RNA sequence: UGCCAGACUUGGCCGGGGGGUUAGGCGUCCCCUGUACCCGAAGUCUAGAUGCGGGGGCGACAGCCCGGUGAGACCACCUGGGUUUCUGUCAGGCCCCGUGGAAUCAUUGAUCCUCUGUCCCUCUGGAUCGGAGGCCUGCAUGUACAUCCUCAAAGGAGGGUGUAUGUGCAGCCUACCAGGGGAACGCGCCAGGCCCGGAAGGGAGCAACGACACCCUGGACUCUCGAUGCUGGAGGGGUGCGGGGGUGAGAGGAAGCGGGGGGUACCUGGCAGGACGCCCAGACCGAACCGGGUGUG
Number, nucleotide and partner (000 for none) at each position: 001u000002g000003c000004c000005a000006g000007a000008c297009u000010u060011g000012g058013c057014c056015g033016g032017g031018g030019g029020g028021u027022u000023a000024g000025g000026c000027g021028u020029c019030c018031c017032c016033u015034g000035u000036a000037c055038c054039c053040g052041a000042a000043g000044u000045c000046u000047a000048g000049a000050u000051g000052c040053g039054g038055g037056g014057g013058c012059g000060a010061c000062a000063g294064c293065c292066c291067g290068g289069u288070g000071a000072g285073a000074c000075c282076a000077c000078c000079u000080g279081g000082g000083u000084u275085u274086c273087u272088g271089u270090c269091a268092g267093g266094c000095c263096c262097c261098g000099u259100g000101g257102a000103a000104u254105c253106a000107u251108u250109g000110a000111u000112c246113c245114u244115c243116u242117g241118u240119c237120c236121c235122u234123c233124u232125g231126g230127a228128u227129c226130g225131g223132a222133g221134g173135c000136c171137u170138g169139c168140a167141u166142g165143u164144a163145c162146a161147u160148c159149c158150u157151c156152a000153a000154a000155g000156g151157a150158g149159g148160g147161u146162g145163u144164a143165u142166g141167u140168g139169c138170a137171g136172c000173c134174u000175a000176c219177c218178a217179g216180g215181g214182g000183a000184a000185c000186g000187c210188g209189c000190c000191a000192g000193g000194c203195c202196c201197g000198g000199a000200a000201g196202g195203g194204a000205g000206c000207a000208a000209c188210g187211a000212c000213a000214c181215c180216c179217u178218g177219g176220a000221c133222u132223c131224u000225c130226g129227a128228u127229g000230c126231u125232g124233g123234a122235g121236g120237g119238g000239u000240g118241c117242g116243g115244g114245g113246g112247u000248g000249a000250g108251a107252g000253g105254a104255a000256g000257c101258g000259g099260g000261g097262g096263g095264u000265a000266c093267c092268u091269g090270g089271c088272a087273g086274g085275a084276c000277g000278c000279c080280c000281a000282g075283a000284c000285c072286g000287a000288a069289c068290c067291g066292g065293g064294u063295g000296u000297g008
This 297-nucleotide sequence from Thermoplasma volcanium belongs to the Rfam family "Archaeal signal recognition particle RNA".
For this family Rfam cites "Towards the structure of the mammalian signal recognition particle" (Wild et al., Curr Opin Struct Biol, 2002).
Rfam links the family to the GO terms signal recognition particle, plasma membrane targeting and SRP-dependent cotranslational protein targeting to membrane, signal sequence recognition.
It is one of the family's seed sequences.
The family's RNA type in Rfam is non-coding RNA gene.